[Rfam]
RNA: RNase MRP
Organism: Citrus x clementina
RNA sequence: AACUCGCAGGAUAAUGUGGUUGGGCCGAACACCAUCGUUCGGGCCCAGGAAAGUCCCCGGGCCAUGUUAUGCUGAGAAGCAUCCUUGGUAACAAGAGAGCCAUGAUUCGGAAAUUCUUCUCGCACUCGUGCGAGCGGCUGAGACGCGUGUGGAGCCGCCGAGUUUCCUCAUGGUAUUUGGCCGAUUACACAGUUAUCCACAUGCUUUAAUAAAGCAACUGAACGGGGCUUACAAUCCUGCGGGU
Numbered sequence: 001a002a003c004u005c006g007c008a009g010g011a012u013a014a015u016g017u018g019g020u021u022g023g024g025c026c027g028a029a030c031a032c033c034a035u036c037g038u039u040c041g042g043g044c045c046c047a048g049g050a051a052a053g054u055c056c057c058c059g060g061g062c063c064a065u066g067u068u069a070u071g072c073u074g075a076g077a078a079g080c081a082u083c084c085u086u087g088g089u090a091a092c093a094a095g096a097g098a099g100c101c102a103u104g105a106u107u108c109g110g111a112a113a114u115u116c117u118u119c120u121c122g123c124a125c126u127c128g129u130g131c132g133a134g135c136g137g138c139u140g141a142g143a144c145g146c147g148u149g150u151g152g153a154g155c156c157g158c159c160g161a162g163u164u165u166c167c168u169c170a171u172g173g174u175a176u177u178u179g180g181c182c183g184a185u186u187a188c189a190c191a192g193u194u195a196u197c198c199a200c201a202u203g204c205u206u207u208a209a210u211a212a213a214g215c216a217a218c219u220g221a222a223c224g225g226g227g228c229u230u231a232c233a234a235u236c237c238u239g240c241g242g243g244u
Base pairs, nucleotide, nucleotide: 002244003243004242005241006240007239008238009237010236011235014202015201016200017199018198019197022046023045024044025043051230052229053228055227056226057225058224070081071080072079073078082097084095085094086093087092099174100173101172106170109167110166111165124163125162126161127160135157136156137155138154145150204214205213206212207211